Rfam assigns this 74-nucleotide RNA from Bordetella avium to the family "Burkholderiales-2 RNA".
[Rfam]
RNA sequence: GCAGAGCUACGGCCAUGCCCGUAGGUGCGAUUGAGCCGGACGAACACCCCACAGGUGGGGUGAGCAACAUCGGC
Numbered sequence: 001g002c003a004g005a006g007c008u009a010c011g012g013c014c015a016u017g018c019c020c021g022u023a024g025g026u027g028c029g030a031u032u033g034a035g036c037c038g039g040a041c042g043a044a045c046a047c048c049c050c051a052c053a054g055g056u057g058g059g060g061u062g063a064g065c066a067a068c069a070u071c072g073g074c
Stems, first nucleotide, its partner, number of pairs: 001028003008023005035074005045062006

By type it is a cis-regulatory element.